The record is a 194-nucleotide RNA from Marinomonas mediterranea, which matches "FMN riboswitch aptamer (RFN element)" in Rfam.
RNA sequence: AUCGAACUUCGGGGCGGGGCGAAAUUCCCCACCGGCGGUAACUUAAAUACCACGCUUUUCUGGCAACAGUGUUGAAGUAAAGUGUGUUGAGAAGCCCGCGAGCGCUUUUUCUUAUGAUGUCGUAAGAAAAGGGUCUAGCAGAUCUGGUGUAAAUCCAGAGCCGACGGUUACAGUCCGGAUGAAAGAAGAUCGAC
Numbered sequence: 001a002u003c004g005a006a007c008u009u010c011g012g013g014g015c016g017g018g019g020c021g022a023a024a025u026u027c028c029c030c031a032c033c034g035g036c037g038g039u040a041a042c043u044u045a046a047a048u049a050c051c052a053c054g055c056u057u058u059u060c061u062g063g064c065a066a067c068a069g070u071g072u073u074g075a076a077g078u079a080a081a082g083u084g085u086g087u088u089g090a091g092a093a094g095c096c097c098g099c100g101a102g103c104g105c106u107u108u109u110u111c112u113u114a115u116g117a118u119g120u121c122g123u124a125a126g127a128a129a130a131g132g133g134u135c136u137a138g139c140a141g142a143u144c145u146g147g148u149g150u151a152a153a154u155c156c157a158g159a160g161c162c163g164a165c166g167g168u169u170a171c172a173g174u175c176c177g178g179a180u181g182a183a184a185g186a187a188g189a190u191c192g193a194c
Base pairs, nucleotide, nucleotide: 003192004191005190007188008187009186010185017029018028019027031174032173033163034162035099036098037097038096102139103138143159144158145157146156147155165177166176167175
The family's consensus secondary structure is taken from published work. It scores 105 bits against the family's covariance model.